[Rfam]
RNA: Nematode snoRNA ceN39
Organism: Nippostrongylus brasiliensis
RNA sequence: CGAGCGGAUAGGAACCAUUUCGCGUGUGUAUGCGAAGUGGGCCGAUAAACCGCUAAAAUCAAUGAUUAAGGAUGUAUGUGCGUUCUAUCUUGUGAUGAAAUGCAGUUCUAUCCUUAGUUGGACAU
Numbered sequence: 001c002g003a004g005c006g007g008a009u010a011g012g013a014a015c016c017a018u019u020u021c022g023c024g025u026g027u028g029u030a031u032g033c034g035a036a037g038u039g040g041g042c043c044g045a046u047a048a049a050c051c052g053c054u055a056a057a058a059u060c061a062a063u064g065a066u067u068a069a070g071g072a073u074g075u076a077u078g079u080g081c082g083u084u085c086u087a088u089c090u091u092g093u094g095a096u097g098a099a100a101u102g103c104a105g106u107u108c109u110a111u112c113c114u115u116a117g118u119u120g121g122a123c124a125u
Base pairs, nucleotide, nucleotide: 003054004053005052006051007050011043012042015040016039017038018037019036020035021034022033023032024031025030066117067116068115069114070113071112072111073110078108080106082103083102